[Rfam]
A member of the RNA family "Bacterial RNase P class A" from Pseudorhizobium pelagicum, 433 nucleotides long.
RNA sequence: CCAGUUGGCCGGGCAGCCGCGCUUUACCAAUGCCGAAAGGCGGUAGGGUGAGGAAAGUCCGGGCUCCACGGAAACACGGUGCCGGAUAACGUCCGGCGGGGGCGACCCCAGGGAAAGUGCCACAGAAAGGAAACCGCCCCGCCUGCUGUUUCGCUCCUCCAGGGAGCGCAAGAGCUGGCGGGGUAAGGGUGAAAGGGUGGGGUAAGAGCCCACCGCGCUCUUGGUGACAGGAGCGGCAUGGUAAACCCCACCGGGAGCAAGACCGAAUAGGGAUGACGCGGGGUGCUUUCAGCACCUACAGCCUGUUUCUGGGCCAGUCAUCCGGGUGGGUUGCGCGAGGCGGUGCGCAAGCAUCGUCCCAGAUGAAUGGCUGCCGCGUCCCGGUGUUCGCACCGGGGCCUUACAGAACCCGGCUUACAGGCCAACUGGCUCC
Numbered sequence: 001c002c003a004g005u006u007g008g009c010c011g012g013g014c015a016g017c018c019g020c021g022c023u024u025u026a027c028c029a030a031u032g033c034c035g036a037a038a039g040g041c042g043g044u045a046g047g048g049u050g051a052g053g054a055a056a057g058u059c060c061g062g063g064c065u066c067c068a069c070g071g072a073a074a075c076a077c078g079g080u081g082c083c084g085g086a087u088a089a090c091g092u093c094c095g096g097c098g099g100g101g102g103c104g105a106c107c108c109c110a111g112g113g114a115a116a117g118u119g120c121c122a123c124a125g126a127a128a129g130g131a132a133a134c135c136g137c138c139c140c141g142c143c144u145g146c147u148g149u150u151u152c153g154c155u156c157c158u159c160c161a162g163g164g165a166g167c168g169c170a171a172g173a174g175c176u177g178g179c180g181g182g183g184u185a186a187g188g189g190u191g192a193a194a195g196g197g198u199g200g201g202g203u204a205a206g207a208g209c210c211c212a213c214c215g216c217g218c219u220c221u222u223g224g225u226g227a228c229a230g231g232a233g234c235g236g237c238a239u240g241g242u243a244a245a246c247c248c249c250a251c252c253g254g255g256a257g258c259a260a261g262a263c264c265g266a267a268u269a270g271g272g273a274u275g276a277c278g279c280g281g282g283g284u285g286c287u288u289u290c291a292g293c294a295c296c297u298a299c300a301g302c303c304u305g306u307u308u309c310u311g312g313g314c315c316a317g318u319c320a321u322c323c324g325g326g327u328g329g330g331u332u333g334c335g336c337g338a339g340g341c342g343g344u345g346c347g348c349a350a351g352c353a354u355c356g357u358c359c360c361a362g363a364u365g366a367a368u369g370g371c372u373g374c375c376g377c378g379u380c381c382c383g384g385u386g387u388u389c390g391c392a393c394c395g396g397g398g399c400c401u402u403a404c405a406g407a408a409c410c411c412g413g414c415u416u417a418c419a420g421g422c423c424a425a426c427u428g429g430c431u432c433c
Stems, first nucleotide, its partner, number of pairs: 001429010011418001012375007020050009055416003059413005064257004073308002077253005082096005097111001098109004112248002117246002119242003134188002136184008196214006215237001216235008261332004271323006301314004339358008

Record summary
Pairs were carried over by alignment from the consensus structure, which is taken from published work. Ribonuclease P (RNase P) is a ubiquitous endoribonuclease, found in archaea, bacteria and eukarya as well as chloroplasts and mitochondria.